[Rfam]
RNA sequence: AAUAGUAAUAAAGCGCCAGAACUACACAGACCGAAACAGUGUAGUUGACGAGGUGGAGUUUAUCGAAGUUUUCGGCGGGUGACUCCCGGUUGAACAUCACAACCGAAAUUAUUUACGUAAAACACAUAGGUGACUAUGUGCACAAAAGUAAAUAAACUGAUGAUC
Numbered sequence: 001a002a003u004a005g006u007a008a009u010a011a012a013g014c015g016c017c018a019g020a021a022c023u024a025c026a027c028a029g030a031c032c033g034a035a036a037c038a039g040u041g042u043a044g045u046u047g048a049c050g051a052g053g054u055g056g057a058g059u060u061u062a063u064c065g066a067a068g069u070u071u072u073c074g075g076c077g078g079g080u081g082a083c084u085c086c087c088g089g090u091u092g093a094a095c096a097u098c099a100c101a102a103c104c105g106a107a108a109u110u111a112u113u114u115a116c117g118u119a120a121a122a123c124a125c126a127u128a129g130g131u132g133a134c135u136a137u138g139u140g141c142a143c144a145a146a147a148g149u150a151a152a153u154a155a156a157c158u159g160a161u162g163a164u165c
Base pairs, nucleotide, nucleotide: 020046021045022044023043024042025041026040027039029037055086056085057084058083059082063075064074065073066072087105088104089103090102091101092100109155110154111153112152113151114150115149123140124139125138126137127136128135129134
The record is a 165-nucleotide sequence from Gottfriedia endophytica, which matches "glmS glucosamine-6-phosphate activated ribozyme aptamer" in Rfam. A search with the family's covariance model found it, with a score of 134 bits. It is annotated as a riboswitch.